[Rfam]
Notes:
This 162-nucleotide RNA from Fictibacillus macauensis belongs to the Rfam family "c-di-AMP riboswitch aptamer (ydaO/yuaA leader)". The organism belongs to Fictibacillus macauensis, within Bacteria. A search with the family's covariance model found it, with a score of 95 bits.
RNA sequence: GCGUCUAUUUCGCUUAAUUCUCUAUGACUAUAGAGAAACGGGGGAACCAACCGUAGUUAGUAAUAACUACAUGGGGUGAAUCUUGAACGAUAAUGUUCGAGUAGGGCGACUCUCACGCCCGAAUCCGUCAGCUAACCUCGUAAGCGUACCGAGAGAGGCAAC
Numbered sequence: 001g002c003g004u005c006u007a008u009u010u011c012g013c014u015u016a017a018u019u020c021u022c023u024a025u026g027a028c029u030a031u032a033g034a035g036a037a038a039c040g041g042g043g044g045a046a047c048c049a050a051c052c053g054u055a056g057u058u059a060g061u062a063a064u065a066a067c068u069a070c071a072u073g074g075g076g077u078g079a080a081u082c083u084u085g086a087a088c089g090a091u092a093a094u095g096u097u098c099g100a101g102u103a104g105g106g107c108g109a110c111u112c113u114c115a116c117g118c119c120c121g122a123a124u125c126c127g128u129c130a131g132c133u134a135a136c137c138u139c140g141u142a143a144g145c146g147u148a149c150c151g152a153g154a155g156a157g158g159c160a161a162c
Stems, first nucleotide, its partner, number of pairs: 011146004018037008038141006048073002074126003082101007104120004